[Rfam]
RNA sequence: UGAGUCGGCCGGGUGAACGCGGCAAUCGAACCAUCCUGCAGGCCAGGACAGGCGAGCGCCGAGGAAAGUCCGGACUUUAUAGAGCACGGUGAUUGCUAACAGCAACCCAGGGUGACCUGCGGGCAAGUGCAACAGAAAGUAGACCGCCACGCGCAAGCGCGGUAAGGGUGAAACGGUGCGGUAAGAGCGCACCAGCGUCCCAAGUGAUUGGGGCGGCUGGGUAAACCCCACUGAAAGCAAGGCAUCAUGGCCCGUUAUUGGCGGGCCUGAUCAGGUGUUUGAGAGCUGCUCGCUCGAACCUGAAGGUAGCCGCUUGAGGCGUAUUGGCAACGAUGCGUCCAGAUGGAUGUUCACCGCUGUCCUAGGCUUUGAGCUUGAGGCAGUACAGAAUCCGGCUUAUAGGCUGGCUCAUUCU
Numbered sequence: 001u002g003a004g005u006c007g008g009c010c011g012g013g014u015g016a017a018c019g020c021g022g023c024a025a026u027c028g029a030a031c032c033a034u035c036c037u038g039c040a041g042g043c044c045a046g047g048a049c050a051g052g053c054g055a056g057c058g059c060c061g062a063g064g065a066a067a068g069u070c071c072g073g074a075c076u077u078u079a080u081a082g083a084g085c086a087c088g089g090u091g092a093u094u095g096c097u098a099a100c101a102g103c104a105a106c107c108c109a110g111g112g113u114g115a116c117c118u119g120c121g122g123g124c125a126a127g128u129g130c131a132a133c134a135g136a137a138a139g140u141a142g143a144c145c146g147c148c149a150c151g152c153g154c155a156a157g158c159g160c161g162g163u164a165a166g167g168g169u170g171a172a173a174c175g176g177u178g179c180g181g182u183a184a185g186a187g188c189g190c191a192c193c194a195g196c197g198u199c200c201c202a203a204g205u206g207a208u209u210g211g212g213g214c215g216g217c218u219g220g221g222u223a224a225a226c227c228c229c230a231c232u233g234a235a236a237g238c239a240a241g242g243c244a245u246c247a248u249g250g251c252c253c254g255u256u257a258u259u260g261g262c263g264g265g266c267c268u269g270a271u272c273a274g275g276u277g278u279u280u281g282a283g284a285g286c287u288g289c290u291c292g293c294u295c296g297a298a299c300c301u302g303a304a305g306g307u308a309g310c311c312g313c314u315u316g317a318g319g320c321g322u323a324u325u326g327g328c329a330a331c332g333a334u335g336c337g338u339c340c341a342g343a344u345g346g347a348u349g350u351u352c353a354c355c356g357c358u359g360u361c362c363u364a365g366g367c368u369u370u371g372a373g374c375u376u377g378a379g380g381c382a383g384u385a386c387a388g389a390a391u392c393c394g395g396c397u398u399a400u401a402g403g404c405u406g407g408c409u410c411a412u413u414c415u
Stems, first nucleotide, its partner, number of pairs: 001411010011400001012355007020061004026055003066398003070395005075237004082291004087233005093105004107121001108119004122228002127226002129222002144167002146163003150159003175193006195217001196215008241311003271303006283295004319338008
Shown here is a 415-nucleotide sequence from Corynebacterium stationis, a member of the family "Bacterial RNase P class A". On this family, see Brown, Nucleic Acids Res 1999: "The Ribonuclease P Database". The family's consensus secondary structure is taken from published work. It is annotated as a ribozyme.